[Rfam]
RNA sequence: UCCUAUUGUACCGCAGCUGCUGAACACUGCCCAAGAUUGGCGUGAACAAUUCUAACGGAAGGCAACUCUUGUGCGUGUGACAGCGGCUAUGGUAUUCAGGAAAUAUCUUC
Numbered sequence: 001u002c003c004u005a006u007u008g009u010a011c012c013g014c015a016g017c018u019g020c021u022g023a024a025c026a027c028u029g030c031c032c033a034a035g036a037u038u039g040g041c042g043u044g045a046a047c048a049a050u051u052c053u054a055a056c057g058g059a060a061g062g063c064a065a066c067u068c069u070u071g072u073g074c075g076u077g078u079g080a081c082a083g084c085g086g087c088u089a090u091g092g093u094a095u096u097c098a099g100g101a102a103a104u105a106u107c108u109u110c
Stems, first nucleotide, its partner, number of pairs: 008095005015088008025077002028075003032071002035068002
A member of the RNA family "mir-210 microRNA precursor family" from Daphnia magna, 110 nucleotides long. The family's consensus secondary structure was predicted with WAR. Taxonomically the source falls in Daphnia (Eukaryota, Eumetazoa, Mandibulata, Branchiopoda). On this family, see Cai et al., Proc Natl Acad Sci U S A 2005: "Kaposi's sarcoma-associated herpesvirus expresses an array of viral microRNAs in latently infected cells".